[Rfam]
RNA sequence: GGAAUGGUUUGGAAUUAUGGCUGGCCUGUGCCCCUGGGCCUCUCAUCGUGUCCUAUGCCAGAGCAAACUGUGGUUCAAAACCACUGCCUGGCCUCUGCCCAUCAGCUGCUGGUACUGAAGGGGGCUGCACAGCA
Numbered sequence: 001g002g003a004a005u006g007g008u009u010u011g012g013a014a015u016u017a018u019g020g021c022u023g024g025c026c027u028g029u030g031c032c033c034c035u036g037g038g039c040c041u042c043u044c045a046u047c048g049u050g051u052c053c054u055a056u057g058c059c060a061g062a063g064c065a066a067a068c069u070g071u072g073g074u075u076c077a078a079a080a081c082c083a084c085u086g087c088c089u090g091g092c093c094u095c096u097g098c099c100c101a102u103c104a105g106c107u108g109c110u111g112g113u114a115c116u117g118a119a120g121g122g123g124g125c126u127g128c129a130c131a132g133c134a
Stems, first nucleotide, its partner, number of pairs: 001058001003056001006052003015048001017046004023040002025037002071127006082117002087112002089108004